The family of this 115-nucleotide RNA from Xanthomonas campestris is "SAH (S-adenosyl-L-homocysteine) riboswitch aptamer". The family's consensus secondary structure is taken from published work. A search with the family's covariance model found it, with a score of 46 bits.
[Rfam]
RNA sequence: CUCGUCGAGGGGCGCUGCGACCGGUACGGCAGAUUCAUCUGCCACCUGCACGAAAAGUGCGGGCAACAACGGCCAGGCUCGACAGGGAUUUUUCGUGAAACGGCGCCCGGAAUUG
Numbered sequence: 001c002u003c004g005u006c007g008a009g010g011g012g013c014g015c016u017g018c019g020a021c022c023g024g025u026a027c028g029g030c031a032g033a034u035u036c037a038u039c040u041g042c043c044a045c046c047u048g049c050a051c052g053a054a055a056a057g058u059g060c061g062g063g064c065a066a067c068a069a070c071g072g073c074c075a076g077g078c079u080c081g082a083c084a085g086g087g088a089u090u091u092u093u094c095g096u097g098a099a100a101c102g103g104c105g106c107c108c109g110g111a112a113u114u115g
Stems, first nucleotide, its partner, number of pairs: 002085001004083005021072003025068001